[Rfam]
RNA sequence: GCGAGGCCCAAAUCGGGCUCGCUUAUGGGGCGCCGGAUGCAGGUGUCCGGCGGCCCUCGUCAUCACGUUGCUCCAAGGAGGAUGUGGUCAUGAGGA
Number, nucleotide and partner (000 for none) at each position: 001g022002c021003g020004a019005g018006g000007c017008c016009c000010a000011a000012a000013u000014c000015g000016g008017g007018c005019u004020c003021g002022c001023u000024u000025a000026u000027g000028g000029g055030g054031c052032g051033c050034c049035g048036g047037a046038u045039g000040c000041a000042g000043g000044u000045g038046u037047c036048c035049g034050g033051c032052g031053g000054c030055c029056c094057u093058c092059g091060u090061c000062a000063u087064c086065a085066c084067g083068u082069u081070g000071c080072u079073c078074c000075a000076a000077g000078g073079a072080g071081g069082a068083u067084g066085u065086g064087g063088u000089c000090a060091u059092g058093a057094g056095g000096a000
Background
The record is a 96-nucleotide sequence from Methylorubrum extorquens, which matches "Repression of heat shock gene expression (ROSE) element" in Rfam. Lineage of the source: Bacteria > Pseudomonadati > Alphaproteobacteria > Methylobacteriaceae > Methylorubrum extorquens. The family's RNA type in Rfam is RNA thermoregulator. About the family: This family represents a 5' UTR cis-regulatory element found in heat shock mRNAs and is known as the ROSE (repression of heat shock gene expression) element. A search with the family's covariance model found it, with a score of 55 bits.